[Rfam]
RNA sequence: ACGAUGUUCCGCUGUCCCAUAGAGUGAUAUGAGCAUUAG
Numbered sequence: 001a002c003g004a005u006g007u008u009c010c011g012c013u014g015u016c017c018c019a020u021a022g023a024g025u026g027a028u029a030u031g032a033g034c035a036u037u038a039g
Stems, first nucleotide, its partner, number of pairs: 003037007013029004018024001
RNA: Ribosomal protein L19 leader